mir-9/mir-79 microRNA precursor family: a 75-nucleotide RNA sequence from Aquarana catesbeiana.
RNA sequence: CGGUUUAUGUCUUUGGUUACCUAGCUGUAUGAGUAUACUAAUUUCAUAAAGCUAGACAACCGAACGUAUGAACCG
Numbered sequence: 001c002g003g004u005u006u007a008u009g010u011c012u013u014u015g016g017u018u019a020c021c022u023a024g025c026u027g028u029a030u031g032a033g034u035a036u037a038c039u040a041a042u043u044u045c046a047u048a049a050a051g052c053u054a055g056a057c058a059a060c061c062g063a064a065c066g067u068a069u070g071a072a073c074c075g
Stems, first nucleotide, its partner, number of pairs: 001075005007069004012064007021055006028048006
The family has 214 seed sequences and 5,647 matches in Rfam 15.1. Its family is annotated with miRNA-mediated post-transcriptional gene silencing and RISC complex in the Gene Ontology.